RNA sequence: CCGUUAUGGUGACUUCUGUACAGAGCCACGUGUCUGGGCCCUUGGAGUCUCAGUGGAUGGGAGGGCGAUACGG
Numbered sequence: 001c002c003g004u005u006a007u008g009g010u011g012a013c014u015u016c017u018g019u020a021c022a023g024a025g026c027c028a029c030g031u032g033u034c035u036g037g038g039c040c041c042u043u044g045g046a047g048u049c050u051c052a053g054u055g056g057a058u059g060g061g062a063g064g065g066c067g068a069u070a071c072g073g
Base pairs, nucleotide, nucleotide: 001073002072003071004070